Rfam assigns this 205-nucleotide sequence from Oryza rufipogon to the family "MIR812 microRNA precursor family".
[Rfam]
RNA sequence: AAAAAAGACAAACACUAGUUUCCGUGUCCAACGUUUUACCGUCCAUCUUAUUUAAAAAAAUUAUGAAAAAAAUUAAAAAGAUAAGUCACGUAUAAAGUAUUAAUCAUGUUUUAUCAUCUAACAACAAUGAAAAUACUAAUUAUAAAAAAAAUUAUAUAAGACGGACAGUCAAAUGUUGGCACGGAAAUCCAGGGUUUGUCUUUUU
Dot-bracket structure: ...........................(((((.(((.((.((((.((((((........................................................................................................)))))).)))).)).))).)))))..........................